About this RNA
Rfam assigns this 133-nucleotide RNA sequence from Luteolibacter yonseiensis to the family "Y RNA-like". In Deinococcus radiodurans Rsr is tethered via Y RNA to the exoribonuclease PNPase and channels single-stranded RNA into the PNPase cavity. Rsr and Y RNA enhance degradation of structured RNAs by PNPase. This role could be conserved, as Rsr and ncRNAs called YrlA and YrlB (Y RNA like) also associate with PNPase in an evolutionary distant bacterium Salmonella Typhimurium. The family has 6 seed sequences and 124 matches in Rfam 15.1. It scores 69 bits against the family's covariance model. A reference for the family is Chen et al. (2013), "An RNA degradation machine sculpted by Ro autoantigen and noncoding RNA", Cell.

RNA sequence: CUGGCGAAUGCCGGUGGAACUACAUCAUUUGAAUGACCAUGUCGCGGGUUCGAGUCCCGUCCGGACCACCAUCGACGGCCCGGUAGCUCAGCGGUAGAGCGGGAAUGUUUCACCAACUCCUUGUCGCCUCCUC
Numbered sequence: 001c002u003g004g005c006g007a008a009u010g011c012c013g014g015u016g017g018a019a020c021u022a023c024a025u026c027a028u029u030u031g032a033a034u035g036a037c038c039a040u041g042u043c044g045c046g047g048g049u050u051c052g053a054g055u056c057c058c059g060u061c062c063g064g065a066c067c068a069c070c071a072u073c074g075a076c077g078g079c080c081c082g083g084u085a086g087c088u089c090a091g092c093g094g095u096a097g098a099g100c101g102g103g104a105a106u107g108u109u110u111c112a113c114c115a116a117c118u119c120c121u122u123g124u125c126g127c128c129u130c131c132u133c
Stems, first nucleotide, its partner, number of pairs: 003128005013114007023103001037102002044060005051094001061083004066078001086100004